Nucleotides: 128
Base pairs, nucleotide, nucleotide: 007040008039009038010037011036013032014031015030016029017028018027067123069121070120071119072118075112076111077110078109084107085106086105087104088103089102
Number, partner (000 for none) and nucleotide at each position: 001000c002000a003000u004000a005000c006000c007040g008039g009038c010037g011036g012000g013032g014031g015030c016029a017028c018027g019000a020000a021000u022000u023000c024000u025000u026000c027018c028017g029016u030015g031014c032013u033000g034000c035000g036011c037010c038009g039008c040007c041000c042000a043000c044000g045000c046000a047000a048000g049000g050000a051000g052000g053000g054000g055000a056000u057000a058000g059000a060000u061000c062000g063000a064000c065000g066000c067123g068000u069121c070120a071119a072118g073000a074000a075112a076111u077110c078109g079000u080000u081000u082000c083000a084107g085106u086105u087104g088103c089102c090000a091000a092000g093000a094000c095000u096000c097000c098000a099000g100000u101000a102089g103088g104087c105086a106085a107084u108000a109078u110077g111076a112075u113000u114000g115000u116000u117000g118072c119071u120070u121069g122000a123067c124000u125000a126000c127000a128000g
The family of this 128-nucleotide RNA sequence from Miscanthus lutarioriparius is "Small nucleolar RNA snoR111". On this family, see Marker et al., Curr Biol 2002: "Experimental RNomics: identification of 140 candidates for small non-messenger RNAs in the plant Arabidopsis thaliana". The family's RNA type in Rfam is H/ACA-box small nucleolar RNA.